[Rfam]
RNA sequence: GGCGUUGCAUUGACAGCUCUCAUACGCGUAUGAGGCUGGUGGCUGGUGGCUUUUGCCACCGGCCU
Numbered sequence: 001g002g003c004g005u006u007g008c009a010u011u012g013a014c015a016g017c018u019c020u021c022a023u024a025c026g027c028g029u030a031u032g033a034g035g036c037u038g039g040u041g042g043c044u045g046g047u048g049g050c051u052u053u054u055g056c057c058a059c060c061g062g063c064c065u
Base pairs, nucleotide, nucleotide: 014038015037016036017035018034022029023028041064042063043062044061045060046059047058048057049056050055
Shown here is a 65-nucleotide RNA sequence from Ventosimonas gracilis, a member of the family "Pseudomonas sRNA P26". A reference for the family is Livny et al. (2006), "Identification of 17 Pseudomonas aeruginosa sRNAs and prediction of sRNA-encoding genes in 10 diverse pathogens using the bioinformatic tool sRNAPredict2", Nucleic Acids Res. The organism belongs to Ventosimonas, within Bacteria. The match comes from Rfam's covariance-model search (49 bits).